Background: Group I catalytic intron: a 308-nucleotide RNA from Xylaria hypoxylon. Rfam links the family to the GO term Group I intron splicing. NCBI's taxonomy places the organism under Eukaryota, Dikarya, Pezizomycotina, leotiomyceta, Xylaria. The base pairs follow the family's consensus structure, which is taken from published work. Group I catalytic introns are large self-splicing ribozymes. They catalyse their own excision from mRNA, tRNA and rRNA precursors in a wide range of organisms. The core secondary structure consists of 9 paired regions (P1-P9). These fold to essentially two domains - the P4-P6 domain (formed from the stacking of P5, P4, P6 and P6a helices) and the P3-P9 domain (formed from the P8, P3, P7 and P9 helices). The secondary structure mark-up for this family represents only this conserved core. Group I catalytic introns often have long ORFs inserted in loop regions. The window size for this search is chosen to minimise search time and catch the small examples. A larger window size will find more matches.
RNA sequence: UUAAGAGGGUCAUGAAAGGGUACUUAAAAAUACUCUAGUGGCAAUAUAUUUGCUGCGACACUGUCAAAUUACGGGAAGUCCCUAAAGCUUCGAAUACCGCGGCCUGUUGAAAAACGAGGUGCAGCACUAGGCAUAACGGCCUAGGGAUGGUAAAAACGUCGAAGAUGUCACAAUGGGUAAUCCGUAGCCAAGUCCGCUUAUAAGGAUGCAGUUCAACGAUUAAAUGGCAGGGGGUUAAGUAACUAGAGCUGUUUUUGCACCUAUUACUUAGCUUAAGAUAUAAUCUACUCCACAUGUGAAAACAUGUA
Numbered sequence: 001u002u003a004a005g006a007g008g009g010u011c012a013u014g015a016a017a018g019g020g021u022a023c024u025u026a027a028a029a030a031u032a033c034u035c036u037a038g039u040g041g042c043a044a045u046a047u048a049u050u051u052g053c054u055g056c057g058a059c060a061c062u063g064u065c066a067a068a069u070u071a072c073g074g075g076a077a078g079u080c081c082c083u084a085a086a087g088c089u090u091c092g093a094a095u096a097c098c099g100c101g102g103c104c105u106g107u108u109g110a111a112a113a114a115c116g117a118g119g120u121g122c123a124g125c126a127c128u129a130g131g132c133a134u135a136a137c138g139g140c141c142u143a144g145g146g147a148u149g150g151u152a153a154a155a156a157c158g159u160c161g162a163a164g165a166u167g168u169c170a171c172a173a174u175g176g177g178u179a180a181u182c183c184g185u186a187g188c189c190a191a192g193u194c195c196g197c198u199u200a201u202a203a204g205g206a207u208g209c210a211g212u213u214c215a216a217c218g219a220u221u222a223a224a225u226g227g228c229a230g231g232g233g234g235u236u237a238a239g240u241a242a243c244u245a246g247a248g249c250u251g252u253u254u255u256u257g258c259a260c261c262u263a264u265u266a267c268u269u270a271g272c273u274u275a276a277g278a279u280a281u282a283a284u285c286u287a288c289u290c291c292a293c294a295u296g297u298g299a300a301a302a303c304a305u306g307u308a
Stems, first nucleotide, its partner, number of pairs: 001006001017025002059232001061230003065226002070186006080177003187212002192207004216286001218285005234272009293306005